RNA sequence: CCCUCGCCCGACAAAUCGCCAUCGAAGCUCACAAACAGAGACGUCUUUCUAAGGCGUCUCGGUCCUCUGGACCAAGAGAAGGCUUUGGGAGAAAGUCCCCGGACACACGUUAUUCCCCCCCUUCUGGGGGCGGAACCAAAACGCCGCGGAAACGCGCCGCCAUAGAAGCACAGCGGCUGACCUCCAAGACCUGCGUCCGGACGUAAUGGCUUCUCUGCCCGCCCCGCUCCGUCGCUACAUCGUCGGCGUUCUGCCCUUUCGAGACCUGAGUCUGCUUGUCCCGGGACCAUAUGGAUGAAGAUAUGAGUCCGCGCCUGGGAUCGGGAGACUUGGUGUGCUUGGGUAGGGCUGGUGCCUUUGAUGACGGGGUGGCCGCGUGUGAGAGGUCGCCUGCCGGGCGAAUUCAAGGGUUCGUCGGAGGAGUCUUUCGUCGAGAUCGAUAGGUAUGCGAUUGCCCGUCCUCCCCUUCGCCGGGGUGGGCGUGUUACUCGAUGGGGCUUAUUCUUGGUGCGAGG
Numbered sequence: 001c002c003c004u005c006g007c008c009c010g011a012c013a014a015a016u017c018g019c020c021a022u023c024g025a026a027g028c029u030c031a032c033a034a035a036c037a038g039a040g041a042c043g044u045c046u047u048u049c050u051a052a053g054g055c056g057u058c059u060c061g062g063u064c065c066u067c068u069g070g071a072c073c074a075a076g077a078g079a080a081g082g083c084u085u086u087g088g089g090a091g092a093a094a095g096u097c098c099c100c101g102g103a104c105a106c107a108c109g110u111u112a113u114u115c116c117c118c119c120c121c122u123u124c125u126g127g128g129g130g131c132g133g134a135a136c137c138a139a140a141a142c143g144c145c146g147c148g149g150a151a152a153c154g155c156g157c158c159g160c161c162a163u164a165g166a167a168g169c170a171c172a173g174c175g176g177c178u179g180a181c182c183u184c185c186a187a188g189a190c191c192u193g194c195g196u197c198c199g200g201a202c203g204u205a206a207u208g209g210c211u212u213c214u215c216u217g218c219c220c221g222c223c224c225c226g227c228u229c230c231g232u233c234g235c236u237a238c239a240u241c242g243u244c245g246g247c248g249u250u251c252u253g254c255c256c257u258u259u260c261g262a263g264a265c266c267u268g269a270g271u272c273u274g275c276u277u278g279u280c281c282c283g284g285g286a287c288c289a290u291a292u293g294g295a296u297g298a299a300g301a302u303a304u305g306a307g308u309c310c311g312c313g314c315c316u317g318g319g320a321u322c323g324g325g326a327g328a329c330u331u332g333g334u335g336u337g338c339u340u341g342g343g344u345a346g347g348g349c350u351g352g353u354g355c356c357u358u359u360g361a362u363g364a365c366g367g368g369g370u371g372g373c374c375g376c377g378u379g380u381g382a383g384a385g386g387u388c389g390c391c392u393g394c395c396g397g398g399c400g401a402a403u404u405c406a407a408g409g410g411u412u413c414g415u416c417g418g419a420g421g422a423g424u425c426u427u428u429c430g431u432c433g434a435g436a437u438c439g440a441u442a443g444g445u446a447u448g449c450g451a452u453u454g455c456c457c458g459u460c461c462u463c464c465c466c467u468u469c470g471c472c473g474g475g476g477u478g479g480g481c482g483u484g485u486u487a488c489u490c491g492a493u494g495g496g497g498c499u500u501a502u503u504c505u506u507g508g509u510g511c512g513a514g515g
Stems, first nucleotide, its partner, number of pairs: 002515006008508004014453006022089001023087006038060010093500003097497004117130005384424001390421003394418003398415004455484001457482004